[Rfam]
RNA sequence: UUCCCCGUGGUGAUGGGGCAAAUCACCAACCUCCCUGUUGGACUUCGCCCCGGCCCUUUGGUCGGGGCUUUUUU
Dot-bracket structure: .......(((((((.......)))))))..................((((((((......))))))))......
About this RNA: The record is a 74-nucleotide sequence from Octadecabacter sp. SW4, which matches "Singlet oxygen resistance RNA X" in Rfam. Rfam describes the family as follows. SorX (RSs2461)like SorY is a singlet oxygen induced sRNA that counteracts oxidative stress by targeting mRNA for a transporter in Rhodobacter. It also has an impact on resistance against organic hydroperoxides. The family has 8 seed sequences and 528 matches in Rfam 15.1. Taxonomically the source falls in Octadecabacter (Bacteria, Pseudomonadati, Alphaproteobacteria, Rhodobacterales). Gene Ontology term of the family: response to photooxidative stress. A search with the family's covariance model found it, with a score of 52 bits.